Record summary: This 99-nucleotide RNA sequence from Glycine max belongs to the Rfam family "MIR1520 microRNA precursor family". The family's consensus secondary structure was predicted with RNAalifold. Taxonomically the source falls in Glycine subgen. Soja (Eukaryota, Spermatophyta, Magnoliopsida, Glycine). The family has 18 seed sequences and 1,934 matches in Rfam 15.1.
RNA sequence: UUAUGUUGACUGUCAUGUGUCAUGUUUUGAUUAAAAAUGGAAACAACAAUUCAUGGAGGUGACAUUUGACCGGAACAUGACACGUGACAGUCAUCAUCC
Dot-bracket structure: ...........((((.((..(((.((((..((...................................))..)))).)))..)).))))...........
Rfam links the family to the GO terms RISC complex and miRNA-mediated post-transcriptional gene silencing.